[Rfam]
RNA sequence: GAUACUUGCGUUCAGUCACAGUCCGAGCGUUGAAGCGGCCAACAGGCCGUGAGCCGUCGCAGGCAAUGAGGACGCCUCGCCAUCAGAAUGGGGAGAGGUGAAAUUCCUAUGG
Numbered sequence: 001g002a003u004a005c006u007u008g009c010g011u012u013c014a015g016u017c018a019c020a021g022u023c024c025g026a027g028c029g030u031u032g033a034a035g036c037g038g039c040c041a042a043c044a045g046g047c048c049g050u051g052a053g054c055c056g057u058c059g060c061a062g063g064c065a066a067u068g069a070g071g072a073c074g075c076c077u078c079g080c081c082a083u084c085a086g087a088a089u090g091g092g093g094a095g096a097g098g099u100g101a102a103a104u105u106c107c108u109a110u111g112g
Stems, first nucleotide, its partner, number of pairs: 007109001008075006076095003080091003096108003

This 112-nucleotide sequence from Oxobacter pfennigii belongs to the Rfam family "pemK RNA".
NCBI's taxonomy places the organism under Bacteria, Bacillati, Bacillota, Eubacteriales, Oxobacter.
It scores 38 bits against the family's covariance model.